The family of this 80-nucleotide RNA from Sus scrofa is "mir-363 microRNA precursor family". The family is grouped with related families in Rfam's "mir-19 clan".
RNA sequence: GCUGUUGUCGGGUGGAUCACGAUGCAAUUUUGAUUAGUAUCAUAGGAGAAAAAUUGCACGGUAUCCAUCUGUAAACCGCA
Numbered sequence: 001g002c003u004g005u006u007g008u009c010g011g012g013u014g015g016a017u018c019a020c021g022a023u024g025c026a027a028u029u030u031u032g033a034u035u036a037g038u039a040u041c042a043u044a045g046g047a048g049a050a051a052a053a054u055u056g057c058a059c060g061g062u063a064u065c066c067a068u069c070u071g072u073a074a075a076c077c078g079c080a
Stems, first nucleotide, its partner, number of pairs: 009071009019062002023058009
The family's consensus secondary structure was predicted with RNAalifold.